[Rfam]
The record is a 98-nucleotide RNA sequence from Rhodovulum sp. 12E13, which matches "TPP riboswitch aptamer (THI element)" in Rfam. Taxonomically the source falls in Rhodovulum (Bacteria, Pseudomonadati, Pseudomonadota, Alphaproteobacteria).
RNA sequence: GGCACCAGACAGGGGCGUCCCGGCAGAUCCGGGGCUGAGAAGCACCCUUUGAACCUGAACCGGAUCAUGCCGGCGUAGGGAGUCGUUCAAGGCCGUGG
Number, nucleotide and partner (000 for none) at each position: 001g000002g000003c000004a000005c000006c000007a000008g084009a083010c082011a048012g047013g046014g045015g000016c042017g035018u034019c033020c032021c031022g030023g029024c000025a000026g000027a000028u000029c023030c022031g021032g020033g019034g018035c017036u000037g000038a000039g000040a000041a000042g016043c000044a000045c014046c013047c012048u011049u000050u000051g000052a000053a000054c079055c078056u077057g076058a000059a000060c073061c072062g071063g070064a000065u000066c000067a000068u000069g000070c063071c062072g061073g060074c000075g000076u057077a056078g055079g054080g000081a000082g010083u009084c008085g000086u000087u000088c000089a000090a000091g000092g000093c000094c000095g000096u000097g000098g000
On this family, see Rodionov et al., J Biol Chem 2002: "Comparative genomics of thiamin biosynthesis in procaryotes. New genes and regulatory mechanisms".